Rfam assigns this 117-nucleotide RNA sequence from Polaromonas eurypsychrophila to the family "ALIL pseudoknot". Lineage of the source: Bacteria > Pseudomonadati > Betaproteobacteria > Burkholderiales > Polaromonas. Rfam links the family to the GO term positive regulation of translational frameshifting.

RNA sequence: UGCUUUUUUUGCAUCGGCGGAGCUCGACCGCCGACUCAAGUCCUGAGAGACUUCAUCGACCAGCAUCGCCACACCUACGGGGUCGAGCCGAUCUGCAAAGUUCUGCAGAUUGCCCCG
Number, nucleotide and partner (000 for none) at each position: 001u000002g000003c000004u000005u000006u000007u000008u000009u000010u000011g000012c000013a000014u000015c000016g032017g031018c030019g029020g028021a000022g000023c000024u000025c000026g000027a000028c020029c019030g018031c017032c016033g000034a000035c000036u000037c000038a000039a000040g000041u000042c000043c000044u000045g000046a000047g000048a000049g000050a000051c000052u000053u000054c000055a000056u000057c000058g000059a000060c000061c000062a000063g000064c000065a000066u000067c000068g000069c000070c000071a000072c000073a000074c000075c000076u000077a000078c117079g116080g115081g114082g113083u000084c000085g000086a000087g000088c000089c112090g111091a000092u109093c108094u107095g106096c105097a104098a000099a000100g000101u000102u000103c000104u097105g096106c095107a094108g093109a092110u000111u090112g089113c082114c081115c080116c079117g078